[Rfam]
RNA sequence: UAAAAAAUAAAAGCGCCAGUACCCAAUUGUCCGGAAUAGAAUUGGGUAGACGAGGGAGAGAGUUAUCGAAGUAUUCGGCGGAUGCUCUCAGGUAAAGGCUGUGUUACCUUAAGAUUAUCUUUUAAACCCAGCAGGUAACUGUUGUGAAGCAGAGAAGAUAAUAAACAGCUGA
Numbered sequence: 001u002a003a004a005a006a007a008u009a010a011a012a013g014c015g016c017c018a019g020u021a022c023c024c025a026a027u028u029g030u031c032c033g034g035a036a037u038a039g040a041a042u043u044g045g046g047u048a049g050a051c052g053a054g055g056g057a058g059a060g061a062g063u064u065a066u067c068g069a070a071g072u073a074u075u076c077g078g079c080g081g082a083u084g085c086u087c088u089c090a091g092g093u094a095a096a097g098g099c100u101g102u103g104u105u106a107c108c109u110u111a112a113g114a115u116u117a118u119c120u121u122u123u124a125a126a127c128c129c130a131g132c133a134g135g136u137a138a139c140u141g142u143u144g145u146g147a148a149g150c151a152g153a154g155a156a157g158a159u160a161a162u163a164a165a166c167a168g169c170u171g172a
Base pairs, nucleotide, nucleotide: 020048021047022046023045024044025043026042027041058089059088060087061086062085066078067077068076069075090109091108092107093106094105095104114162115161116160117159118158119157120156129144130143131142132141133140134139

A member of the RNA family "glmS glucosamine-6-phosphate activated ribozyme aptamer" from Halanaerobium salsuginis, 172 nucleotides long.
NCBI's taxonomy places the organism under Bacteria, Bacillati, Halanaerobiales, Halanaerobiaceae, Halanaerobium.
Rfam describes the family as follows. This entry contains a glucosamine-6-phosphate activated ribozyme that is found in the mRNA for GlmS. GlmS is an enzyme that uses fructose-6-phosphate and glutamine to generate glucosamine-6-phosphate.